Rfam assigns this 404-nucleotide part of an RNA from Cafeteria roenbergensis to the family "Eukaryotic large subunit ribosomal RNA". The organism belongs to Cafeteria, within Eukaryota. The family's consensus secondary structure is taken from published work. Rfam links the family to the GO terms ribosome and structural constituent of ribosome.
RNA sequence: GGACCUGAAAUCAAGCAAGAGGACCCGCUGGAUUUAAGCAUAUAACUAGGCGGAGGAAAAGAAACUAACUAGGAUUCCCUCAGUAACGGCGAGUGAAGCGGGAAGAGCUCAGGCUGAAAAUCCCUCGGGAGUUGUAGUCUGUAGGCCCAGUGCUGCAGUUGACGCGGGUGCAAGUUCUCACGAACGAGACGCCAGGGAGGGUGAUAGCCCCGUCCCGCCCGCGAACGCGUUACAGUACGGUGCCGAAGAGUCGGGAUGCUUGGGAAUGCAUCCCUAAGUGGGUGGUAAGUCCCAUCUAAAGCUAAAUACGGGCAAGAGACCGAUAGCGAACAAGUACUGUGAAGGAAAGAUGAAAAGCACUUUGAAAAGAAGGUUAAAAGAGCUUGAAAUUGCUGAAAUGGAAG
Numbered sequence: 001g002g003a004c005c006u007g008a009a010a011u012c013a014a015g016c017a018a019g020a021g022g023a024c025c026c027g028c029u030g031g032a033u034u035u036a037a038g039c040a041u042a043u044a045a046c047u048a049g050g051c052g053g054a055g056g057a058a059a060a061g062a063a064a065c066u067a068a069c070u071a072g073g074a075u076u077c078c079c080u081c082a083g084u085a086a087c088g089g090c091g092a093g094u095g096a097a098g099c100g101g102g103a104a105g106a107g108c109u110c111a112g113g114c115u116g117a118a119a120a121u122c123c124c125u126c127g128g129g130a131g132u133u134g135u136a137g138u139c140u141g142u143a144g145g146c147c148c149a150g151u152g153c154u155g156c157a158g159u160u161g162a163c164g165c166g167g168g169u170g171c172a173a174g175u176u177c178u179c180a181c182g183a184a185c186g187a188g189a190c191g192c193c194a195g196g197g198a199g200g201g202u203g204a205u206a207g208c209c210c211c212g213u214c215c216c217g218c219c220c221g222c223g224a225a226c227g228c229g230u231u232a233c234a235g236u237a238c239g240g241u242g243c244c245g246a247a248g249a250g251u252c253g254g255g256a257u258g259c260u261u262g263g264g265a266a267u268g269c270a271u272c273c274c275u276a277a278g279u280g281g282g283u284g285g286u287a288a289g290u291c292c293c294a295u296c297u298a299a300a301g302c303u304a305a306a307u308a309c310g311g312g313c314a315a316g317a318g319a320c321c322g323a324u325a326g327c328g329a330a331c332a333a334g335u336a337c338u339g340u341g342a343a344g345g346a347a348a349g350a351u352g353a354a355a356a357g358c359a360c361u362u363u364g365a366a367a368a369g370a371a372g373g374u375u376a377a378a379a380g381a382g383c384u385u386g387a388a389a390u391u392g393c394u395g396a397a398a399u400g401g402a403a404g
Stems, first nucleotide, its partner, number of pairs: 024055001025053005035042002065072002076103004086094002106303004112139005118133002121130003144244002147240002151237004160227002164222007174190001176189004193197001200210002253274007280297005337344002361370003